[Rfam]
Nucleotides: 035
Stems, first nucleotide, its partner, number of pairs: 002021004010034003
Number, partner (000 for none) and nucleotide at each position: 001000u002021a003020g004019g005018c006000g007000g008000u009000a010034a011033c012032c013000g014000a015000a016000a017000a018005g019004c020003c021002u022000g023000a024000a025000a026000a027000g028000a029000g030000u031000a032012g033011g034010u035000g